[Rfam]
RNA sequence: AUAGCCUUGAGAUAUGUUUGAUAUUCUUGGUUGUCUAAUUUGAAUUCAACCAAAUGUCAAACAUAUUAUCAGGGAAAU
Numbered sequence: 001a002u003a004g005c006c007u008u009g010a011g012a013u014a015u016g017u018u019u020g021a022u023a024u025u026c027u028u029g030g031u032u033g034u035c036u037a038a039u040u041u042g043a044a045u046u047c048a049a050c051c052a053a054a055u056g057u058c059a060a061a062c063a064u065a066u067u068a069u070c071a072g073g074g075a076a077a078u
Stems, first nucleotide, its partner, number of pairs: 005074005011067015029051005
Shown here is a 78-nucleotide RNA from Bemisia tabaci, a member of the family "mir-190 microRNA precursor family". The family's consensus secondary structure was predicted with RNAalifold. Clan: mir-50 clan. Rfam links the family to the GO terms miRNA-mediated post-transcriptional gene silencing and RISC complex. A reference for the family is Kloosterman et al. (2006), "Cloning and expression of new microRNAs from zebrafish", Nucleic Acids Res. The family has 76 seed sequences and 1,667 matches in Rfam 15.1. The source organism's lineage runs through Eukaryota, Opisthokonta, Eumetazoa, Allotriocarida and Bemisia.